[Rfam]
RNA sequence: GGGUGCCCAACGUGGGGCUCUGGAUACGGGGGAUCCAGUGGGGAAGAAGACUCGAGGUUGCCGGCGCUUGUGAAACGAGAGUAAAUUCCUUCGACCGCCGCGGGAGCCUGCCGCGCGGGAGCAGAAGGUGAGUAAGUGCGUCUGAAUAUGGGGCAGGAAUUGAGCAAGCACCAGCUUUAUGUUAAGCAGUUAAAGGAAGCUUUAAAGACACGAGGAGUAAAGGUUAAAGGACAUGAUUUAUUUAAAUUUUUUGACUUUAUACAGGAUAUCUGCCCUU
Numbered sequence: 001g002g003g004u005g006c007c008c009a010a011c012g013u014g015g016g017g018c019u020c021u022g023g024a025u026a027c028g029g030g031g032g033a034u035c036c037a038g039u040g041g042g043g044a045a046g047a048a049g050a051c052u053c054g055a056g057g058u059u060g061c062c063g064g065c066g067c068u069u070g071u072g073a074a075a076c077g078a079g080a081g082u083a084a085a086u087u088c089c090u091u092c093g094a095c096c097g098c099c100g101c102g103g104g105a106g107c108c109u110g111c112c113g114c115g116c117g118g119g120a121g122c123a124g125a126a127g128g129u130g131a132g133u134a135a136g137u138g139c140g141u142c143u144g145a146a147u148a149u150g151g152g153g154c155a156g157g158a159a160u161u162g163a164g165c166a167a168g169c170a171c172c173a174g175c176u177u178u179a180u181g182u183u184a185a186g187c188a189g190u191u192a193a194a195g196g197a198a199g200c201u202u203u204a205a206a207g208a209c210a211c212g213a214g215g216a217g218u219a220a221a222g223g224u225u226a227a228a229g230g231a232c233a234u235g236a237u238u239u240a241u242u243u244a245a246a247u248u249u250u251u252u253g254a255c256u257u258u259a260u261a262c263a264g265g266a267u268a269u270c271u272g273c274c275c276u277u
Stems, first nucleotide, its partner, number of pairs: 006032003012027003039047001086130001088128001090126002095121001096118001099115005137155003141152004161204003164200002211253008221239006263276003267272001
A member of the RNA family "Mason-Pfizer monkey virus packaging signal" from Propithecus coquereli, 277 nucleotides long. About the family: This family represents a group of sequences that are related to the Mason-Pfizer monkey virus (MPMV) packaging signal. The packaging signal is located in the 5' UTR and is required for specific RNA encapsidation.